[Rfam]
RNA sequence: CCAGCAUUUAGUCCGGGGCGAAAAGCCGGACACCUUCACCGGCCUGAUGCUGGCACCUUUUCAUGAAGG
Numbered sequence: 001c002c003a004g005c006a007u008u009u010a011g012u013c014c015g016g017g018g019c020g021a022a023a024a025g026c027c028g029g030a031c032a033c034c035u036u037c038a039c040c041g042g043c044c045u046g047a048u049g050c051u052g053g054c055a056c057c058u059u060u061u062c063a064u065g066a067a068g069g
Stems, first nucleotide, its partner, number of pairs: 001053008011019003025043005033069006
RNA: int-alpA RNA
Organism: Pollutimonas bauzanensis